[Rfam]
RNA sequence: UUUCGGGAUGGCGAUGGAGUUCGCCACUAAGUCUGUAAGGCUGAUAACUCCUACCACUUU
Numbered sequence: 001u002u003u004c005g006g007g008a009u010g011g012c013g014a015u016g017g018a019g020u021u022c023g024c025c026a027c028u029a030a031g032u033c034u035g036u037a038a039g040g041c042u043g044a045u046a047a048c049u050c051c052u053a054c055c056a057c058u059u060u
Stems, first nucleotide, its partner, number of pairs: 010025004016051006031041003
RNA: Fluoride riboswitch aptamer (crcB RNA motif)
Organism: Peptococcaceae bacterium SCADC1_2_3